This 146-nucleotide RNA from Megasphaera geminata belongs to the Rfam family "glmS glucosamine-6-phosphate activated ribozyme aptamer". On this family, see Winkler et al., Nature 2004: "Control of gene expression by a natural metabolite-responsive ribozyme". A search with the family's covariance model found it, with a score of 83 bits.
[Rfam]
RNA sequence: GACAUUGUCUUAGCGCUGGCUCUCCGUUCGGAGAGGACGAGGAAGAGGUUGUCGAAAUUUCAGCGGAUGCCUCUCGGCUCAGCCGGUCGAUAAAGGCCGUCAAAACUCAUCGGUGACGGUGAGGACAAAGCGGUACAUAAGGCUUU
Numbered sequence: 001g002a003c004a005u006u007g008u009c010u011u012a013g014c015g016c017u018g019g020c021u022c023u024c025c026g027u028u029c030g031g032a033g034a035g036g037a038c039g040a041g042g043a044a045g046a047g048g049u050u051g052u053c054g055a056a057a058u059u060u061c062a063g064c065g066g067a068u069g070c071c072u073c074u075c076g077g078c079u080c081a082g083c084c085g086g087u088c089g090a091u092a093a094a095g096g097c098c099g100u101c102a103a104a105a106c107u108c109a110u111c112g113g114u115g116a117c118g119g120u121g122a123g124g125a126c127a128a129a130g131c132g133g134u135a136c137a138u139a140a141g142g143c144u145u146u
Stems, first nucleotide, its partner, number of pairs: 020035006044074005052063001054061002075089005096134004106123007